[Rfam]
RNA sequence: CCGCAUUCCAACCCCUCCUGGUAGCUGCACUGCUGGCUGCCGGGAGUAAGAACGAAUGCCAGAGCGAAACGGGGAUUCAUCCAAAAUGCGGAGCUCCUGUCCUGUGGCUCCGUGUUAUUUCACGUCUUCGACAUUG
Numbered sequence: 001c002c003g004c005a006u007u008c009c010a011a012c013c014c015c016u017c018c019u020g021g022u023a024g025c026u027g028c029a030c031u032g033c034u035g036g037c038u039g040c041c042g043g044g045a046g047u048a049a050g051a052a053c054g055a056a057u058g059c060c061a062g063a064g065c066g067a068a069a070c071g072g073g074g075a076u077u078c079a080u081c082c083a084a085a086a087u088g089c090g091g092a093g094c095u096c097c098u099g100u101c102c103u104g105u106g107g108c109u110c111c112g113u114g115u116u117a118u119u120u121c122a123c124g125u126c127u128u129c130g131a132c133a134u135u136g
Stems, first nucleotide, its partner, number of pairs: 003059004007052001009050001016045006023038003064135001070130006085116007093108002097104001
RNA: Small nucleolar RNA SNORA14
Organism: Coturnix japonica